[Rfam]
RNA sequence: GUUGGGUACGGAGAUAUGUACCCCAAGUCGUGGCUUGGCUACAUUGUAGGCAGUCUUUGUGCUGUAUUGGGGAUAAUUAUGAUACAAAUGCCCGUACCGAUUAUUGUUAGCAAC
Numbered sequence: 001g002u003u004g005g006g007u008a009c010g011g012a013g014a015u016a017u018g019u020a021c022c023c024c025a026a027g028u029c030g031u032g033g034c035u036u037g038g039c040u041a042c043a044u045u046g047u048a049g050g051c052a053g054u055c056u057u058u059g060u061g062c063u064g065u066a067u068u069g070g071g072g073a074u075a076a077u078u079a080u081g082a083u084a085c086a087a088a089u090g091c092c093c094g095u096a097c098c099g100a101u102u103a104u105u106g107u108u109a110g111c112a113a114c
Stems, first nucleotide, its partner, number of pairs: 001114002004111001008107004013102003018097004037077001049063003

Shown here is a 114-nucleotide sequence from Mytilus galloprovincialis, a member of the family "Potassium channel RNA editing signal". Rfam classes the family as a cis-regulatory element. NCBI's taxonomy places the organism under Eukaryota, Eumetazoa, Spiralia, Lophotrochozoa, Mytilus. Rfam links the family to the GO term adenosine to inosine editing. A search with the family's covariance model found it, with a score of 54 bits. A reference for the family is Bhalla et al. (2004), "Control of human potassium channel inactivation by editing of a small mRNA hairpin", Nat Struct Mol Biol. The family's consensus secondary structure is taken from published work.